[Rfam]
RNA sequence: GCAUUUUGUGUUCGCUGCAGACCUUGAUUUAAUGUCACACGAUUAAGGCACGCAGUGAAUGCCAAAGUUU
Numbered sequence: 001g002c003a004u005u006u007u008g009u010g011u012u013c014g015c016u017g018c019a020g021a022c023c024u025u026g027a028u029u030u031a032a033u034g035u036c037a038c039a040c041g042a043u044u045a046a047g048g049c050a051c052g053c054a055g056u057g058a059a060u061g062c063c064a065a066a067g068u069u070u
Stems, first nucleotide, its partner, number of pairs: 003068004008062008017053002022048008